Rfam assigns this 104-nucleotide RNA sequence from Hydrogenophaga taeniospiralis to the family "Glycine riboswitch aptamer". NCBI's taxonomy places the organism under Bacteria, Pseudomonadota, Betaproteobacteria, Hydrogenophaga, Hydrogenophaga taeniospiralis. It scores 60 bits against the family's covariance model. This family represents the bacterial glycine riboswitch.
[Rfam]
RNA sequence: GUGUCCCCCACUGGAGAGAGGCCGCCCCCGAGGCGGUCCACCGAAGGAGCAAGUGCGGCAUCGUCCGCGCGAAUCUCUCAGGUAAAGCGGACAGAGGGGCAGCG
Number, nucleotide and partner (000 for none) at each position: 001g000002u000003g000004u000005c000006c099007c098008c097009c096010a000011c094012u093013g092014g000015a000016g000017a000018g000019a000020g038021g037022c036023c035024g034025c033026c000027c000028c000029c000030g000031a000032g000033g025034c024035g023036g022037u021038c020039c000040a083041c082042c081043g079044a078045a000046g000047g077048a076049g075050c000051a000052a000053g070054u069055g068056c067057g066058g000059c000060a000061u000062c000063g000064u000065c000066c057067g056068c055069g054070c053071g000072a000073a000074u000075c049076u048077c047078u044079c043080a000081g042082g041083u040084a000085a000086a000087g000088c000089g000090g000091a000092c013093a012094g011095a000096g009097g008098g007099g006100c000101a000102g000103c000104g000